[Rfam]
RNA sequence: CUUCAGCGAGCCCAGCCACAGCGGGUCCUCGCGGUCCUGGCCGUAGACGGACAGCAGUGCCUGUGCCUC
Numbered sequence: 001c002u003u004c005a006g007c008g009a010g011c012c013c014a015g016c017c018a019c020a021g022c023g024g025g026u027c028c029u030c031g032c033g034g035u036c037c038u039g040g041c042c043g044u045a046g047a048c049g050g051a052c053a054g055c056a057g058u059g060c061c062u063g064u065g066c067c068u069c
Base pairs, nucleotide, nucleotide: 014026016024017023028065030063032059033058037054038053039052041050042049043048
RNA: ASpks TB sRNA
Organism: Streptomyces sp. NA02950